[Rfam]
RNA sequence: CAAGUCCACUGCGAUGAAGGAAUAGCGAACCACAUCGGCCCCGAGCCGUGCGCAGGCAUCCGCGAGGAUGUCGGCGAAGCGUCGGCAGGGGUACGUACAGGCCAGCCAUUGAGCCACGAUAGAAAAACUGAUUCCGGGUGCCGACGCUGUCUGUGUAGCGGAAGGCAAAACGUCUGAGCGCGCAAUCGCGAGCGCCCGGAUGACCCGGCGUGGUCGUAGAACC
Number, nucleotide and partner (000 for none) at each position: 001c000002a000003a000004g000005u000006c000007c000008a000009c000010u000011g000012c037013g036014a035015u034016g033017a000018a000019g031020g030021a000022a000023u191024a000025g189026c188027g000028a000029a000030c020031c019032a000033c016034a015035u014036c013037g012038g000039c091040c090041c089042c088043g000044a000045g086046c085047c084048g083049u081050g080051c076052g075053c074054a000055g072056g071057c070058a069059u068060c067061c066062g000063c000064g000065a000066g061067g060068a059069u058070g057071u056072c055073g000074g053075c052076g051077a000078a000079g000080c050081g049082u000083c048084g047085g046086c045087a000088g042089g041090g040091g039092u000093a000094c000095g000096u000097a000098c000099a000100g000101g000102c000103c000104a000105g000106c000107c000108a000109u000110u000111g215112a000113g214114c213115c212116a211117c210118g209119a000120u000121a000122g000123a000124a000125a000126a000127a000128c000129u000130g000131a000132u000133u000134c208135c207136g206137g205138g204139u203140g166141c165142c164143g000144a000145c160146g159147c158148u157149g000150u000151c000152u000153g000154u000155g000156u000157a148158g147159c146160g145161g000162a000163a000164g142165g141166c140167a000168a000169a000170a000171c202172g201173u200174c199175u198176g197177a000178g195179c194180g193181c192182g000183c000184a000185a000186u000187c000188g026189c025190g000191a023192g181193c180194g179195c178196c000197c176198g175199g174200a173201u172202g171203a139204c138205c137206c136207g135208g134209c118210g117211u116212g115213g114214u113215c111216g000217u000218a000219g000220a000221a000222c000223c000